[Rfam]
RNA sequence: UGUGUCGCGAGGCUUGCACUGAAGGAAGCGAGACUACAAUACCGAUGGCUAUCGGUACCGGUACUGACGAACAGGAACGGUAUACUGAGGCUGAUAAAAGAGGAUAAGUGAGCACAACUUCACAAGGUCCGUAGCCAACAAUCUGUGAUUAGUAGGAACAACGAUCAUGGUAGAACGACGAGCAA
Numbered sequence: 001u002g003u004g005u006c007g008c009g010a011g012g013c014u015u016g017c018a019c020u021g022a023a024g025g026a027a028g029c030g031a032g033a034c035u036a037c038a039a040u041a042c043c044g045a046u047g048g049c050u051a052u053c054g055g056u057a058c059c060g061g062u063a064c065u066g067a068c069g070a071a072c073a074g075g076a077a078c079g080g081u082a083u084a085c086u087g088a089g090g091c092u093g094a095u096a097a098a099a100g101a102g103g104a105u106a107a108g109u110g111a112g113c114a115c116a117a118c119u120u121c122a123c124a125a126g127g128u129c130c131g132u133a134g135c136c137a138a139c140a141a142u143c144u145g146u147g148a149u150u151a152g153u154a155g156g157a158a159c160a161a162c163g164a165u166c167a168u169g170g171u172a173g174a175a176c177g178a179c180g181a182g183c184a185a
Stems, first nucleotide, its partner, number of pairs: 001016002004013003046185001048183003052178002056172005063165001065163002080159002083156001090153003094149002097146001099144002102130004108123004
Shown here is a 185-nucleotide RNA from Pseudochryseolinea flava, a member of the family "Group II catalytic intron D1-D4-3". Taxonomically the source falls in Pseudochryseolinea (Bacteria, Pseudomonadati, Cytophagia, Cytophagales).